Annotation:
Shown here is a 106-nucleotide RNA sequence from Bacillus sp. V59.32b, a member of the family "BsrF". The family's consensus secondary structure was predicted with WAR. It scores 81 bits against the family's covariance model.
RNA sequence: GCGAUGAGCUAAUUUGUGUAAGUCGAAGGACAAGCUUCGUUUGGAUGUGGCCAAACGGUCCUUCGCCUCAAAACGCAUCAAAGACGCCUGGCUGUUGCCGGGCGUC
Numbered sequence: 001g002c003g004a005u006g007a008g009c010u011a012a013u014u015u016g017u018g019u020a021a022g023u024c025g026a027a028g029g030a031c032a033a034g035c036u037u038c039g040u041u042u043g044g045a046u047g048u049g050g051c052c053a054a055a056c057g058g059u060c061c062u063u064c065g066c067c068u069c070a071a072a073a074c075g076c077a078u079c080a081a082a083g084a085c086g087c088c089u090g091g092c093u094g095u096u097g098c099c100g101g102g103c104g105u106c
Stems, first nucleotide, its partner, number of pairs: 014071003018067001024065008038057002041054003083106009